[Rfam]
RNA sequence: ACCCUCUGGUUCCCUUUCCCAUUGGAUCUGAAUGCUGAAGUCUUGGUGGUCAUAAAAGUAGGGAAAGCAAGGCUGACGCUCGCCCCACAGCAUUGCAAUCUGGCAUAUAGCAUGUUGGGCUAGUUUCAAACAGGA
Numbered sequence: 001a002c003c004c005u006c007u008g009g010u011u012c013c014c015u016u017u018c019c020c021a022u023u024g025g026a027u028c029u030g031a032a033u034g035c036u037g038a039a040g041u042c043u044u045g046g047u048g049g050u051c052a053u054a055a056a057a058g059u060a061g062g063g064a065a066a067g068c069a070a071g072g073c074u075g076a077c078g079c080u081c082g083c084c085c086c087a088c089a090g091c092a093u094u095g096c097a098a099u100c101u102g103g104c105a106u107a108u109a110g111c112a113u114g115u116u117g118g119g120c121u122a123g124u125u126u127c128a129a130a131c132a133g134g135a
Base pairs, nucleotide, nucleotide: 003062004061005060007058019049020048021047022046023045025042026041027040028037079123080122082120083119084118085117094112095111096110
A member of the RNA family "Small nucleolar RNA SNORA61" from Castor canadensis, 135 nucleotides long. Taxonomically the source falls in Castor (Eukaryota, Chordata, Glires, Castoridae).